[Rfam]
RNA sequence: CCGAGUGCGAUCAGGCUCGGCAGUCGGAGGCGCCUGUAGCUUCCGGGCGCUUCUCUUAGGUCCAACUUGCUCGUUCGAGGAGAUGGAAAUGAGAA
Number, nucleotide and partner (000 for none) at each position: 001c020002c019003g018004a017005g016006u015007g000008c014009g000010a000011u000012c000013a000014g008015g006016c005017u004018c003019g002020g001021c000022a000023g000024u000025c000026g000027g053028a052029g051030g050031c049032g048033c047034c046035u045036g044037u000038a000039g000040c000041u000042u000043c000044c036045g035046g034047g033048c032049g031050c030051u029052u028053c027054u000055c093056u092057u091058a090059g000060g000061u000062c086063c085064a084065a000066c082067u081068u080069g000070c079071u078072c077073g000074u000075u000076c000077g072078a071079g070080g068081a067082g066083a000084u064085g063086g062087a000088a000089a000090u058091g057092a056093g055094a000095a000
Description: Rfam assigns this 95-nucleotide RNA from Poindextera montana to the family "Repression of heat shock gene expression (ROSE) element". A reference for the family is Nocker et al. (2001), "A mRNA-based thermosensor controls expression of rhizobial heat shock genes", Nucleic Acids Res. It scores 46 bits against the family's covariance model. Rfam describes the family as follows. This family represents a 5' UTR cis-regulatory element found in heat shock mRNAs and is known as the ROSE (repression of heat shock gene expression) element. The ROSE element is a negative regulator of heat shock gene expression. The secondary structure is thought to be regulated by temperature. This regulation blocks access to the ribosome binding site under normal conditions.